[Rfam]
RNA sequence: AUGGAGCUUUGUUGGCAAAAAUCAAUCCAUGGCUCUUGAAGAAGCAUGGAGGAUUGUGUGAGAGGGUCAUCACCCUUCACACUCCACCUCUUACAGUUUGCUUAUGCUUAGCCAUUGGCUUCUCUAAUCAUUAACAACAAAGGGGUAUAUAUGGAGGAACAUAAUUCUCUUUGAGUCUCAUGAAGCAGAGAAGCAUUCUCCAUAGGUCAGAGAAGCUUUGGCUACAGCCAAGCAAACCGGCAAGUCACAGAAAGGCAAUGGACUCUCUCUCAUUAAGGGGUCCU
Numbered sequence: 001a002u003g004g005a006g007c008u009u010u011g012u013u014g015g016c017a018a019a020a021a022u023c024a025a026u027c028c029a030u031g032g033c034u035c036u037u038g039a040a041g042a043a044g045c046a047u048g049g050a051g052g053a054u055u056g057u058g059u060g061a062g063a064g065g066g067u068c069a070u071c072a073c074c075c076u077u078c079a080c081a082c083u084c085c086a087c088c089u090c091u092u093a094c095a096g097u098u099u100g101c102u103u104a105u106g107c108u109u110a111g112c113c114a115u116u117g118g119c120u121u122c123u124c125u126a127a128u129c130a131u132u133a134a135c136a137a138c139a140a141a142g143g144g145g146u147a148u149a150u151a152u153g154g155a156g157g158a159a160c161a162u163a164a165u166u167c168u169c170u171u172u173g174a175g176u177c178u179c180a181u182g183a184a185g186c187a188g189a190g191a192a193g194c195a196u197u198c199u200c201c202a203u204a205g206g207u208c209a210g211a212g213a214a215g216c217u218u219u220g221g222c223u224a225c226a227g228c229c230a231a232g233c234a235a236a237c238c239g240g241c242a243a244g245u246c247a248c249a250g251a252a253a254g255g256c257a258a259u260g261g262a263c264u265c266u267c268u269c270u271c272a273u274u275a276a277g278g279g280g281u282c283c284u
Base pairs, nucleotide, nucleotide: 058087059086096237097236098235099234100233101232115226261282262281263280264279265278
Dot-bracket structure: .........................................................((..........................))........((((((.............(..............................................................................................................).....)))))).......................(((((............)))))..
The record is a 284-nucleotide RNA from Vigna radiata, which matches "Early nodulin 40" in Rfam. The base pairs follow the family's consensus structure, which is taken from published work. The match comes from Rfam's covariance-model search (169 bits).